[Rfam]
RNA: SAM riboswitch aptamer (S box leader)
Organism: Flavobacterium branchiophilum
Nucleotides: 107
Stems, first nucleotide, its partner, number of pairs: 003105006013042004021031003026077003043070004048066002050062004074099001079096006
Number, partner (000 for none) and nucleotide at each position: 001000u002000a003105g004104u005103u006102a007101u008100c009000a010000c011000g012000a013042a014041a015040g016039g017000c018000g019000g020000a021031g022030g023029g024000a025000c026077a027076g028075a029023c030022c031021c032000a033000a034000c035000g036000a037000a038000a039016c040015c041014u042013u043070a044069g045068c046067a047000a048066c049065c050062c051061u052060u053059u054000a055000u056000c057000a058000a059053a060052a061051a062050g063000a064000a065049g066048g067046u068045g069044c070043u071000a072000c073000a074099u075028u076027c077026u078000a079096c080095u081094u082093a083092u084091u085000c086000c087000a088000a089000a090000a091084a092083a093082u094081a095080a096079g097000a098000c099074a100008g101007a102006u103005a104004a105003c106000c107000c